[Rfam]
RNA sequence: AGAGUUUGGGGAACAUUCAACGCUGUCGGUGAGUUUGUGACUCCGAGAAACCAUCGAGUGUUGAGUGUACCCUUGCGCUU
Numbered sequence: 001a002g003a004g005u006u007u008g009g010g011g012a013a014c015a016u017u018c019a020a021c022g023c024u025g026u027c028g029g030u031g032a033g034u035u036u037g038u039g040a041c042u043c044c045g046a047g048a049a050a051c052c053a054u055c056g057a058g059u060g061u062u063g064a065g066u067g068u069a070c071c072c073u074u075g076c077g078c079u080u
Stems, first nucleotide, its partner, number of pairs: 003080001004078002007075002014067009026057006033051004

The family of this 80-nucleotide RNA from Etheostoma spectabile is "mir-181 microRNA precursor family".
Its family is annotated with RISC complex and miRNA-mediated post-transcriptional gene silencing in the Gene Ontology.